[Rfam]
RNA: mir-31 microRNA precursor family
Organism: Lottia gigantea
RNA sequence: GAGUCCAGACUAGGCAAGAUGUUGGCAUAGCUGAGUCAUAUAUGAACCAUCAGCUGUGUCUCAUAUUGCUAUCUUUGGGCUUG
Numbered sequence: 001g002a003g004u005c006c007a008g009a010c011u012a013g014g015c016a017a018g019a020u021g022u023u024g025g026c027a028u029a030g031c032u033g034a035g036u037c038a039u040a041u042a043u044g045a046a047c048c049a050u051c052a053g054c055u056g057u058g059u060c061u062c063a064u065a066u067u068g069c070u071a072u073c074u075u076u077g078g079g080c081u082u083g
Stems, first nucleotide, its partner, number of pairs: 005078005013070005019064003024060008